[Rfam]
RNA sequence: AUAAUGAUACACUUGCACUGCAAUUGCGUGAGCUACCACGCGAGGGUGAAAUUCCCGUGA
Numbered sequence: 001a002u003a004a005u006g007a008u009a010c011a012c013u014u015g016c017a018c019u020g021c022a023a024u025u026g027c028g029u030g031a032g033c034u035a036c037c038a039c040g041c042g043a044g045g046g047u048g049a050a051a052u053u054c055c056c057g058u059g060a
Base pairs, nucleotide, nucleotide: 012057013023014022015021016020024043025042026041028039029038030037044056045055046054